[Rfam]
Rfam assigns this 142-nucleotide sequence from Atractosteus spatula to the family "U4 spliceosomal RNA". Clan: U4 clan. For this family Rfam cites "The uRNA database" (Zwieb, Nucleic Acids Res, 1997). The organism belongs to Atractosteus, within Eukaryota. The base pairs follow the family's consensus structure, which is taken from published work. It is annotated as a spliceosomal small nuclear RNA.

RNA sequence: AGCUUUGCGCAGUGGCAGUAUUGUCGCCUAUGAGGUUUAGCAGAGGCGCAGUUAUUGCUAGUUGAAAACAUUUCCCAAUACCCCGCUUCCUCUGAUUUGAAAUACAAUCAGUGGGAGCAAUUUUUGACAGUCUCGUGAGAGG
Numbered sequence: 001a002g003c004u005u006u007g008c009g010c011a012g013u014g015g016c017a018g019u020a021u022u023g024u025c026g027c028c029u030a031u032g033a034g035g036u037u038u039a040g041c042a043g044a045g046g047c048g049c050a051g052u053u054a055u056u057g058c059u060a061g062u063u064g065a066a067a068a069c070a071u072u073u074c075c076c077a078a079u080a081c082c083c084c085g086c087u088u089c090c091u092c093u094g095a096u097u098u099g100a101a102a103u104a105c106a107a108u109c110a111g112u113g114g115g116a117g118c119a120a121u122u123u124u125u126g127a128c129a130g131u132c133u134c135g136u137g138a139g140a141g142g
Base pairs, nucleotide, nucleotide: 020052021051022050023049024048026047027046028045035041036040085118086117087116088115089114090113092111093110094109095108096107097106131142132141133140134139